[Rfam]
RNA sequence: CCAAGCAUCCAUUUAUCUUCUUUUCAGUUCUUUCUUAACCUGCCCCAAGGGAACUUGGAGCCACACGCCGCCUUGCAGUGCCAGAUUUUUUUCUGGACAUGAAAUACAGCGGCAACAGCUGGUAAGCCAAUCUCCAUUUGGCUGAACGUUUGAAGCCGCAGUGGAAGUGCAGCAGCAAGGGGGCUACGGUGC
Numbered sequence: 001c002c003a004a005g006c007a008u009c010c011a012u013u014u015a016u017c018u019u020c021u022u023u024u025c026a027g028u029u030c031u032u033u034c035u036u037a038a039c040c041u042g043c044c045c046c047a048a049g050g051g052a053a054c055u056u057g058g059a060g061c062c063a064c065a066c067g068c069c070g071c072c073u074u075g076c077a078g079u080g081c082c083a084g085a086u087u088u089u090u091u092u093c094u095g096g097a098c099a100u101g102a103a104a105u106a107c108a109g110c111g112g113c114a115a116c117a118g119c120u121g122g123u124a125a126g127c128c129a130a131u132c133u134c135c136a137u138u139u140g141g142c143u144g145a146a147c148g149u150u151u152g153a154a155g156c157c158g159c160a161g162u163g164g165a166a167g168u169g170c171a172g173c174a175g176c177a178a179g180g181g182g183g184c185u186a187c188g189g190u191g192c
Stems, first nucleotide, its partner, number of pairs: 001058005008052003012049003067184003071180006077168001079166001081164002109159005116152003120148001125143006